[Rfam]
RNA: pan motif
RNA sequence: UGGGCAGUAUCGUUUACGAACUGCACCAAACAACCGUAAGACACUUAAAAUGAAUACUAAUAUGUUCUGCCUUGAUCAAAUUCACGACAGGGACGGAGGA
Dot-bracket structure: ((((((((.((......))))))).)))......................................((((((((.((........))))))).)))....
Numbered sequence: 001u002g003g004g005c006a007g008u009a010u011c012g013u014u015u016a017c018g019a020a021c022u023g024c025a026c027c028a029a030a031c032a033a034c035c036g037u038a039a040g041a042c043a044c045u046u047a048a049a050a051u052g053a054a055u056a057c058u059a060a061u062a063u064g065u066u067c068u069g070c071c072u073u074g075a076u077c078a079a080a081u082u083c084a085c086g087a088c089a090g091g092g093a094c095g096g097a098g099g100a
Stems, first nucleotide, its partner, number of pairs: 001028003004024005010019002067096003070092005076087002